[Rfam]
RNA: nhaA-I RNA
RNA sequence: GGGUGUUAGCCACAUGUUGUGGUGGGACAGGUUUGUGCGUUGGUCGGGCCGCCACG
Numbered sequence: 001g002g003g004u005g006u007u008a009g010c011c012a013c014a015u016g017u018u019g020u021g022g023u024g025g026g027a028c029a030g031g032u033u034u035g036u037g038c039g040u041u042g043g044u045c046g047g048g049c050c051g052c053c054a055c056g
Stems, first nucleotide, its partner, number of pairs: 005028003009023003038056003042053003